Shown here is a 104-nucleotide RNA sequence from Melghirimyces algeriensis, a member of the family "Glycine riboswitch aptamer".
Pairs were carried over by alignment from the consensus structure.
This family represents the bacterial glycine riboswitch.
[Rfam]
RNA sequence: AUGACUGUGGUGGGAGAGAUCGGAUAAUUUCCGGCGCCGAAGGAGCAACAUCCCAAAAAGCCCUUGGGAAAGAAUCUCUCAGGCAAACAGACCACCAUAGGACG
Dot-bracket structure: .....((((((((......((((.......)))).(((((..(((..............................))))).))).......)))))))).....

It scores 66 bits against the family's covariance model.